RNA: Mycobacterium sRNA Ms_AS-5
Organism: Ilumatobacter fluminis
RNA sequence: GUCGGGAUACUGGCCCGUGAAGAGGGUCGGCCGGCUCGGGACACA
Numbered sequence: 001g002u003c004g005g006g007a008u009a010c011u012g013g014c015c016c017g018u019g020a021a022g023a024g025g026g027u028c029g030g031c032c033g034g035c036u037c038g039g040g041a042c043a044c045a
Stems, first nucleotide, its partner, number of pairs: 012032004017027002